The family of this 81-nucleotide RNA sequence from Muribacter muris is "Aggregatibacter sRNA 20".
Taxonomically the source falls in Muribacter (Bacteria, Pseudomonadota, Pasteurellales, Pasteurellaceae).
It scores 71 bits against the family's covariance model.
The pairing is the family consensus, mapped onto this sequence.
Validated by RT-PCR and Northern blot.
For this family Rfam cites "Small RNA repertoires and their intraspecies variation in Aggregatibacter actinomycetemcomitans" (Oogai et al., DNA Res, 2017).
By type it is a small RNA.
RNA sequence: AAUAAAAGUGUUGUGUUCAACAACCGAUUUCAUAAAUUUGCUUUCCGAGUAGCCCCUAAGACUAGGGGCUUUUUUUAUUUC
Numbered sequence: 001a002a003u004a005a006a007a008g009u010g011u012u013g014u015g016u017u018c019a020a021c022a023a024c025c026g027a028u029u030u031c032a033u034a035a036a037u038u039u040g041c042u043u044u045c046c047g048a049g050u051a052g053c054c055c056c057u058a059a060g061a062c063u064a065g066g067g068g069c070u071u072u073u074u075u076u077a078u079u080u081c
Base pairs, nucleotide, nucleotide: 001076002075004073005072006071007070008069022042024040026038027037028036053068054067055066056065057064058063